[Rfam]
RNA: tRNA
Organism: Chaetomium globosum
RNA sequence: GGGAUCUUAGCAUAAUGGUAAUGCAAUUGACUUUUAAUCAUUCGAAUAUUGGUUUGAAUCCGAUAGAUCCCA
Numbered sequence: 001g002g003g004a005u006c007u008u009a010g011c012a013u014a015a016u017g018g019u020a021a022u023g024c025a026a027u028u029g030a031c032u033u034u035u036a037a038u039c040a041u042u043c044g045a046a047u048a049u050u051g052g053u054u055u056g057a058a059u060c061c062g063a064u065a066g067a068u069c070c071c072a
Stems, first nucleotide, its partner, number of pairs: 001071007010024004026042001028040003048064005